[Rfam]
RNA sequence: UGCCGCUAAGGUGAUGGCGUGCCACCUUCCCCAACCGCCGUUCUGGAAACAGACGGCUGAUGACGCCUGACAACAC
Dot-bracket structure: .........[[[[..(((((..]]]]..........((((((.........)))))).....))))).........